RNA sequence: GCAUGGACGAAUUCUGUUCCAGCUGUUCUGUGUUGGCUACAGUCAGACACCAUGCAAAAGCAUUUCUGAUUUCUGCCUAAUACCUGGGUGAGUGCUUCUCGGCCUCAUCCAGCUGUGCAGGAAACAGUACAAUU
Number, nucleotide and partner (000 for none) at each position: 001g055002c054003a053004u052005g051006g050007a000008c000009g000010a000011a000012u000013u000014c042015u041016g040017u039018u000019c000020c000021a000022g000023c000024u000025g000026u000027u000028c000029u000030g000031u000032g000033u000034u000035g000036g000037c000038u000039a017040c016041a015042g014043u000044c000045a000046g000047a000048c000049a000050c006051c005052a004053u003054g002055c001056a000057a000058a000059a000060g000061c000062a000063u000064u000065u000066c127067u126068g125069a000070u123071u122072u121073c120074u119075g118076c117077c000078u000079a000080a000081u000082a116083c115084c112085u111086g110087g109088g108089u107090g106091a105092g104093u000094g000095c000096u000097u000098c000099u000100c000101g000102g000103c000104c092105u091106c090107a089108u088109c087110c086111a085112g084113c000114u000115g083116u082117g076118c075119a074120g073121g072122a071123a070124a000125c068126a067127g066128u000129a000130c000131a000132a000133u000134u000
This 134-nucleotide RNA sequence from Dissostichus mawsoni belongs to the Rfam family "Small nucleolar RNA SNORA15".
About the family: ACA15 is a member of the H/ACA class of snoRNA that guide the sites of modification of uridines to pseudouridines.
Pairs were carried over by alignment from the consensus structure, which was predicted with RNAfold.